[Rfam]
RNA sequence: UAAUAUAAAUUAAUAGAAAUGCGUAUAAUUUUAGGGAAUAAGGGCCUAUGAGUAUCUACCAGACUACCGUAAACAGUCUGACUACGCAGAUUAUAGUAAUGAAU
Numbered sequence: 001u002a003a004u005a006u007a008a009a010u011u012a013a014u015a016g017a018a019a020u021g022c023g024u025a026u027a028a029u030u031u032u033a034g035g036g037a038a039u040a041a042g043g044g045c046c047u048a049u050g051a052g053u054a055u056c057u058a059c060c061a062g063a064c065u066a067c068c069g070u071a072a073a074c075a076g077u078c079u080g081a082c083u084a085c086g087c088a089g090a091u092u093a094u095a096g097u098a099a100u101g102a103a104u
Stems, first nucleotide, its partner, number of pairs: 020088006029051002032048004060080006
RNA: Purine riboswitch aptamer
Organism: Oceanobacillus bengalensis